[Rfam]
RNA sequence: CUCCCGGCGCCGUAAGGCGCCAGGAUGGGGCGGCAGAAGUCAGCCGACGCUGUAGUAGUGCUGCAAAACCGGCAGCAUGAAGGGC
Numbered sequence: 001c002u003c004c005c006g007g008c009g010c011c012g013u014a015a016g017g018c019g020c021c022a023g024g025a026u027g028g029g030g031c032g033g034c035a036g037a038a039g040u041c042a043g044c045c046g047a048c049g050c051u052g053u054a055g056u057a058g059u060g061c062u063g064c065a066a067a068a069c070c071g072g073c074a075g076c077a078u079g080a081a082g083g084g085c
Stems, first nucleotide, its partner, number of pairs: 001027001004023001006021006039048003049085003058078006
A member of the RNA family "Group II catalytic intron D1-D4-1" from Escherichia coli, 85 nucleotides long. Rfam links the family to the GO term Group II intron splicing. It is one of the family's seed sequences. Rfam's curators write: Group II introns are found in rRNA, tRNA and mRNA of organelles in fungi, plants and protists, and also in mRNA in bacteria. Rfam 15.1 lists 2,508 matches to the family in 1,144 species. Pairs were carried over by alignment from the consensus structure.